[Rfam]
RNA sequence: AAACGGAUACAGAACUGGCGGAUCGUGGAAUAACCACAAGGGACUGUAUCUUGAAUUAGCCGACCGCCUGGGCAUAACUU
Numbered sequence: 001a002a003a004c005g006g007a008u009a010c011a012g013a014a015c016u017g018g019c020g021g022a023u024c025g026u027g028g029a030a031u032a033a034c035c036a037c038a039a040g041g042g043a044c045u046g047u048a049u050c051u052u053g054a055a056u057u058a059g060c061c062g063a064c065c066g067c068c069u070g071g072g073c074a075u076a077a078c079u080u
Stems, first nucleotide, its partner, number of pairs: 005051008015041002017068005025037004059073003

A member of the RNA family "ZMP/ZTP riboswitch aptamer (pfl RNA motif)" from Pelosinus fermentans, 80 nucleotides long. The source organism's lineage runs through Bacteria, Selenomonadales, Sporomusaceae, Pelosinus and Pelosinus fermentans.